Rfam assigns this 115-nucleotide RNA from Trifolium medium to the family "MIR2593 microRNA precursor family". The family has 7 seed sequences and 1,262 matches in Rfam 15.1. The match comes from Rfam's covariance-model search (97 bits). Lineage of the source: Eukaryota > Euphyllophyta > Spermatophyta > Hologalegina > Trifolium.
RNA sequence: UUAUAAGUAAAAUUGCACUUUUUAGAUUCAUUGUAUAUUUAAUGUAUCUGGUCUAUAAUAUAGAGCAGAUACAUUAGAGAUAGAAUGAACCUAAAAAGUGCAAUUUUGCUUAUAA
Number, nucleotide and partner (000 for none) at each position: 001u000002u114003a113004u112005a111006a110007g109008u000009a107010a106011a105012a104013u103014u000015g101016c100017a099018c098019u097020u096021u095022u094023u093024a092025g091026a000027u089028u088029c087030a086031u085032u084033g000034u082035a081036u080037a000038u078039u077040u076041a075042a074043u073044g072045u000046a000047u000048c000049u067050g066051g000052u064053c000054u000055a000056u000057a000058a000059u000060a000061u000062a000063g000064a052065g000066c050067a049068g000069a000070u000071a000072c044073a043074u042075u041076a040077g039078a038079g000080a036081u035082a034083g000084a032085a031086u030087g029088a028089a027090c000091c025092u024093a023094a022095a021096a020097a019098g018099u017100g016101c015102a000103a013104u012105u011106u010107u009108g000109c007110u006111u005112a004113u003114a002115a000